[Rfam]
RNA sequence: UAACUGAACAUGCGAAUGUUCACUGAACUAUCAGAAGUCAGCCGGGGGCCGUAGUACAAGAUGCUUCUAUAAUAUCUGGGAAGGCU
Numbered sequence: 001u002a003a004c005u006g007a008a009c010a011u012g013c014g015a016a017u018g019u020u021c022a023c024u025g026a027a028c029u030a031u032c033a034g035a036a037g038u039c040a041g042c043c044g045g046g047g048g049c050c051g052u053a054g055u056a057c058a059a060g061a062u063g064c065u066u067c068u069a070u071a072a073u074a075u076c077u078g079g080g081a082a083g084g085c086u
Stems, first nucleotide, its partner, number of pairs: 001025002005022007038045002047086003057079001059077004